[Rfam]
RNA sequence: AUCCAAACCAAACACUACUAUUAAACUUCUUUUUCAAGGUUCCUUACCUACCAAAUCUAUAUUCAUCAUGUCUCCCUGCACCUGCAACUGCUGCUCCGGCGAGUGCAACUCCUGCUCUUGCUCUACCUGCACUGUAUGUCAUU
Numbered sequence: 001a002u003c004c005a006a007a008c009c010a011a012a013c014a015c016u017a018c019u020a021u022u023a024a025a026c027u028u029c030u031u032u033u034u035c036a037a038g039g040u041u042c043c044u045u046a047c048c049u050a051c052c053a054a055a056u057c058u059a060u061a062u063u064c065a066u067c068a069u070g071u072c073u074c075c076c077u078g079c080a081c082c083u084g085c086a087a088c089u090g091c092u093g094c095u096c097c098g099g100c101g102a103g104u105g106c107a108a109c110u111c112c113u114g115c116u117c118u119u120g121c122u123c124u125a126c127c128u129g130c131a132c133u134g135u136a137u138g139u140c141a142u143u
Stems, first nucleotide, its partner, number of pairs: 077101003084094003105130003114121002
The record is a 143-nucleotide sequence from Penicillium nordicum, which matches "A. fumigatus sRNA Afu_254" in Rfam. It is annotated as a small RNA. For this family Rfam cites "Small ncRNA transcriptome analysis from Aspergillus fumigatus suggests a novel mechanism for regulation of protein synthesis" (Jochl et al., Nucleic Acids Res, 2008). The source organism's lineage runs through Eukaryota, Fungi, Eurotiales, Aspergillaceae and Penicillium.